This 112-nucleotide RNA sequence belongs to the Rfam family "SL2 RNA". Rfam's curators write: This family represents SL2 RNA. SL2 RNA is involved in trans splicing in lower eukaryotes. Trans-splicing is a form of RNA processing. The acquisition of a spliced leader from a SL RNA is a intra-molecular reaction which precisely joins exons derived from separately transcribed RNAs. Approximately 25% of C. elegans genes are organised into polycistronic transcription units and the presence of SL2 on an mRNA is an indication the the gene is in an operon. A reference for the family is Evans and Blumenthal (2000), "trans splicing of polycistronic Caenorhabditis elegans pre-mRNAs: analysis of the SL2 RNA", Mol Cell Biol. The family's RNA type in Rfam is non-coding RNA gene.

RNA sequence: GGUUUUAACCCAAGUUAACCAAGGUUAGCAUUGGAGUUCGAUCAUUCGGCAACGAAUGCGUUGAACAAAGAAAUUUUGAGUCCUCCGCCUCGGGGUUUUCCGGGGCGGAAAA
Numbered sequence: 001g002g003u004u005u006u007a008a009c010c011c012a013a014g015u016u017a018a019c020c021a022a023g024g025u026u027a028g029c030a031u032u033g034g035a036g037u038u039c040g041a042u043c044a045u046u047c048g049g050c051a052a053c054g055a056a057u058g059c060g061u062u063g064a065a066c067a068a069a070g071a072a073a074u075u076u077u078g079a080g081u082c083c084u085c086c087g088c089c090u091c092g093g094g095g096u097u098u099u100c101c102g103g104g105g106c107g108g109a110a111a112a
Base pairs, nucleotide, nucleotide: 007037009033014029015028017026018025019024039063040062041061042060043058044057045056046055047054088108089107091105094101095100
Dot-bracket structure: ......(.(....((.(((....))).))...)...).(((((((((......))))).))))........................((.(..((....))...).))....